Background: SAM riboswitch aptamer (S box leader): a 105-nucleotide RNA from Bacillus sp. J14TS2. For this family Rfam cites "The S box regulon: a new global transcription termination control system for methionine and cysteine biosynthesis genes in gram-positive bacteria" (Grundy and Henkin, Mol Microbiol, 1998). The SAM riboswitch is found upstream of a number of genes which code for proteins involved in methionine or cysteine biosynthesis in Gram-positive bacteria. The SAM riboswitch acts at the level of transcription termination control. The predicted structure consists of a complex stem-loop region followed by a single stem loop terminator region. A search with the family's covariance model found it, with a score of 99 bits.
[Rfam]
RNA sequence: UUCUUAUCCAGAGAGACGGAGGGAUUGGCCCUUUGAUGUCUCAGCAACCGGCCUAUAAGGCAAUGGUGCUAAUUCCAAUAGGUUUUCAAACCUAGAAGAUAAGAA
Numbered sequence: 001u002u003c004u005u006a007u008c009c010a011g012a013g014a015g016a017c018g019g020a021g022g023g024a025u026u027g028g029c030c031c032u033u034u035g036a037u038g039u040c041u042c043a044g045c046a047a048c049c050g051g052c053c054u055a056u057a058a059g060g061c062a063a064u065g066g067u068g069c070u071a072a073u074u075c076c077a078a079u080a081g082g083u084u085u086u087c088a089a090a091c092c093u094a095g096a097a098g099a100u101a102a103g104a105a
Stems, first nucleotide, its partner, number of pairs: 001105008013042005021031003025078004043070004048066002051061003074097001079094006

Annotation
The organism belongs to Bacillus, within Bacteria.